[Rfam]
RNA: RAGATH-18 RNA
RNA sequence: CCUGUGGACUGUUAUAUCAAACGAAAGUAGUAUUAUUAAUAAUACAAAAUCGAACAGGUUGAAACAGGAA
Numbered sequence: 001c002c003u004g005u006g007g008a009c010u011g012u013u014a015u016a017u018c019a020a021a022c023g024a025a026a027g028u029a030g031u032a033u034u035a036u037u038a039a040u041a042a043u044a045c046a047a048a049a050u051c052g053a054a055c056a057g058g059u060u061g062a063a064a065c066a067g068g069a070a
Base pairs, nucleotide, nucleotide: 001068002067003066004065005064009057010056011055012054013053022052023051024050030045031044032043033042034041